[Rfam]
RNA sequence: AACAGAGUAAGUGGUCUGCGUUAAGUGUGUAUGGAUGGGAUGUUGCCAUACAACGAAACAUUUGUGCGGUAGACCAUUGCAUCCGCUGUC
Numbered sequence: 001a002a003c004a005g006a007g008u009a010a011g012u013g014g015u016c017u018g019c020g021u022u023a024a025g026u027g028u029g030u031a032u033g034g035a036u037g038g039g040a041u042g043u044u045g046c047c048a049u050a051c052a053a054c055g056a057a058a059c060a061u062u063u064g065u066g067c068g069g070u071a072g073a074c075c076a077u078u079g080c081a082u083c084c085g086c087u088g089u090c
Stems, first nucleotide, its partner, number of pairs: 002089004010078009019068003025054002028052007038084005058065002
RNA: THF (Tetrahydrofolate) riboswitch aptamer